[Rfam]
RNA sequence: GCCAUGCAAACGGGAGAACCGGCCCAAGCCGGUGCCGAAGGAGCAACCGCCCCGGAAACUCUCAGGCCGCAGGGACCGUCUGCAUGAC
Numbered sequence: 001g002c003c004a005u006g007c008a009a010a011c012g013g014g015a016g017a018a019c020c021g022g023c024c025c026a027a028g029c030c031g032g033u034g035c036c037g038a039a040g041g042a043g044c045a046a047c048c049g050c051c052c053c054g055g056a057a058a059c060u061c062u063c064a065g066g067c068c069g070c071a072g073g074g075a076c077c078g079u080c081u082g083c084a085u086g087a088c
Stems, first nucleotide, its partner, number of pairs: 006083003010079004019032004034067003037063002041061003047055002
RNA: Glycine riboswitch aptamer
Organism: Thalassococcus sp. S3